[Rfam]
RNA sequence: GAGAAAAGGGGACUUAGAUCUAGGGAAAAGGUGGGGCAUGAGAUGGGUCAAUCAACACUGCGAAAGGAGGAAAUUACAGAACGUUUGUUGUUGCCUCUCCCAUGCACUGCCUCUUCCCUGGCUCUGCUUACUCCUCUUGCA
Numbered sequence: 001g002a003g004a005a006a007a008g009g010g011g012a013c014u015u016a017g018a019u020c021u022a023g024g025g026a027a028a029a030g031g032u033g034g035g036g037c038a039u040g041a042g043a044u045g046g047g048u049c050a051a052u053c054a055a056c057a058c059u060g061c062g063a064a065a066g067g068a069g070g071a072a073a074u075u076a077c078a079g080a081a082c083g084u085u086u087g088u089u090g091u092u093g094c095c096u097c098u099c100c101c102a103u104g105c106a107c108u109g110c111c112u113c114u115u116c117c118c119u120g121g122c123u124c125u126g127c128u129u130a131c132u133c134c135u136c137u138u139g140c141a
Base pairs, nucleotide, nucleotide: 017124018123021120022119023118024117025116026115027114029112030111031110032109033108034107036105037104038103039102040101042100046096047095
RNA: MIR408 microRNA precursor family
Organism: Carnegiea gigantea